[Rfam]
RNA: S4-Clostridia ribosomal protein leader
RNA sequence: AAAAGGCUGCGUAAAAUUAUUUUUGCGGCUGGAUAUGUAAAACCCCGUCAGUUUUAUAUAUCUCAAUUAGG
Numbered sequence: 001a002a003a004a005g006g007c008u009g010c011g012u013a014a015a016a017u018u019a020u021u022u023u024u025g026c027g028g029c030u031g032g033a034u035a036u037g038u039a040a041a042a043c044c045c046c047g048u049c050a051g052u053u054u055u056a057u058a059u060a061u062c063u064c065a066a067u068u069a070g071g
Base pairs, nucleotide, nucleotide: 005030006029007028008027009026010025011024031063032062033061034060035059036058037057038056039055040054041053042052043051